[Rfam]
The record is a 581-nucleotide part of an RNA from Methanomassiliicoccales archaeon RumEn M2, which matches "Archaeal large subunit ribosomal RNA" in Rfam. The match comes from Rfam's covariance-model search (2741 bits). The organism belongs to Methanomassiliicoccales, within Archaea.
RNA sequence: CCUCCAUCUGAAAGCGAAGACCCCAUGGAGUUUCACUGCAACCUGUUGUUGCGGUAAGAAUUGACAUGUGUAGGGUAGGCGGGAGUCGUUACCCAGGAAGGAGCGCCAGCUUCUCUCCGAGACUACGAUGAAACACCGCUCUUGUCGAUUUUUACCACUAACCUCUAAGGAGGAACAGCUAUAGGUAGGCAGUUCGGGUGGGGCGCCACGCCCUCAAAAAGAUAACAAGGGCGCCCAAAGGUUAGCUCAGGUAGGUCAGAAAUCUACCGAAGAAUGUAAGGGUAUAAGCUAGCUUGACUCGGAACCAGACAAUAGGGUUCGGAGAUAGGAAACUAAGGCCUAGCGAACCAAUCAACCUCCCGAGUGGGGGUGAUUGAUGUCAGAAAAAUUACCCUGGGGAUAAUUGAGUUGUCAGCAGCAAGAGUUCAUAUCGACCUGCUGGCUUGCUACUUCGCUGUCGGCUCUCCCUAUCCUGGUGGUGCAGCAGCUGCCAAGGGUGGGGUUGUUCGCCCAUUAAAAGGGAUCGUGAGCUGGGUUUAAAACGUCGUGAGACAGUUUUGUUGCUUUUUGAUGGAGGUGUU
Numbered sequence: 001c002c003u004c005c006a007u008c009u010g011a012a013a014g015c016g017a018a019g020a021c022c023c024c025a026u027g028g029a030g031u032u033u034c035a036c037u038g039c040a041a042c043c044u045g046u047u048g049u050u051g052c053g054g055u056a057a058g059a060a061u062u063g064a065c066a067u068g069u070g071u072a073g074g075g076u077a078g079g080c081g082g083g084a085g086u087c088g089u090u091a092c093c094c095a096g097g098a099a100g101g102a103g104c105g106c107c108a109g110c111u112u113c114u115c116u117c118c119g120a121g122a123c124u125a126c127g128a129u130g131a132a133a134c135a136c137c138g139c140u141c142u143u144g145u146c147g148a149u150u151u152u153u154a155c156c157a158c159u160a161a162c163c164u165c166u167a168a169g170g171a172g173g174a175a176c177a178g179c180u181a182u183a184g185g186u187a188g189g190c191a192g193u194u195c196g197g198g199u200g201g202g203g204c205g206c207c208a209c210g211c212c213c214u215c216a217a218a219a220a221g222a223u224a225a226c227a228a229g230g231g232c233g234c235c236c237a238a239a240g241g242u243u244a245g246c247u248c249a250g251g252u253a254g255g256u257c258a259g260a261a262a263u264c265u266a267c268c269g270a271a272g273a274a275u276g277u278a279a280g281g282g283u284a285u286a287a288g289c290u291a292g293c294u295u296g297a298c299u300c301g302g303a304a305c306c307a308g309a310c311a312a313u314a315g316g317g318u319u320c321g322g323a324g325a326u327a328g329g330a331a332a333c334u335a336a337g338g339c340c341u342a343g344c345g346a347a348c349c350a351a352u353c354a355a356c357c358u359c360c361c362g363a364g365u366g367g368g369g370g371u372g373a374u375u376g377a378u379g380u381c382a383g384a385a386a387a388a389u390u391a392c393c394c395u396g397g398g399g400a401u402a403a404u405u406g407a408g409u410u411g412u413c414a415g416c417a418g419c420a421a422g423a424g425u426u427c428a429u430a431u432c433g434a435c436c437u438g439c440u441g442g443c444u445u446g447c448u449a450c451u452u453c454g455c456u457g458u459c460g461g462c463u464c465u466c467c468c469u470a471u472c473c474u475g476g477u478g479g480u481g482c483a484g485c486a487g488c489u490g491c492c493a494a495g496g497g498u499g500g501g502g503u504u505g506u507u508c509g510c511c512c513a514u515u516a517a518a519a520g521g522g523a524u525c526g527u528g529a530g531c532u533g534g535g536u537u538u539a540a541a542a543c544g545u546c547g548u549g550a551g552a553c554a555g556u557u558u559u560g561u562u563g564c565u566u567u568u569u570g571a572u573g574g575a576g577g578u579g580u581u
Stems, first nucleotide, its partner, number of pairs: 001577008010569003014564002022398004027394002029390005035193004042185005048179001051158001053156014068141001078140005085123003100113005162173004196209001197207003210232005235338002241293006247273002250268006274283002298324003302320005326335001328333001349376005355371005407448003411445001412442007422432002459534001460532004464526001465523005472497002476491005500512004540558004544553003